[Rfam]
Record summary
Rfam assigns this 117-nucleotide RNA sequence from Terrisporobacter othiniensis to the family "FMN riboswitch aptamer (RFN element)". The source organism's lineage runs through Bacteria, Bacillati, Peptostreptococcales, Peptostreptococcaceae and Terrisporobacter. A search with the family's covariance model found it, with a score of 118 bits.
RNA sequence: UAAAAUCUUCAGGGCAGGGUGAAAUUCCCUACCGGUGGUUAUAGCCCACGAGCCAUUAUGGCAUGAUUCGGUGAGAUUCCGAAGCCGACAGUAAAGUCUGGAUGAAAGAAGAUAGAA
Numbered sequence: 001u002a003a004a005a006u007c008u009u010c011a012g013g014g015c016a017g018g019g020u021g022a023a024a025u026u027c028c029c030u031a032c033c034g035g036u037g038g039u040u041a042u043a044g045c046c047c048a049c050g051a052g053c054c055a056u057u058a059u060g061g062c063a064u065g066a067u068u069c070g071g072u073g074a075g076a077u078u079c080c081g082a083a084g085c086c087g088a089c090a091g092u093a094a095a096g097u098c099u100g101g102a103u104g105a106a107a108g109a110a111g112a113u114a115g116a117a
Stems, first nucleotide, its partner, number of pairs: 005113006017029003031097002033087002035049004044085002054061001067083005089100003